[Rfam]
RNA: DUF805b RNA
RNA sequence: GUAGGGGAAGCCGAAAACCUGAUAGAGUAGGUA
Numbered sequence: 001g002u003a004g005g006g007g008a009a010g011c012c013g014a015a016a017a018c019c020u021g022a023u024a025g026a027g028u029a030g031g032u033a
Base pairs, nucleotide, nucleotide: 003020004019005018010032011031012030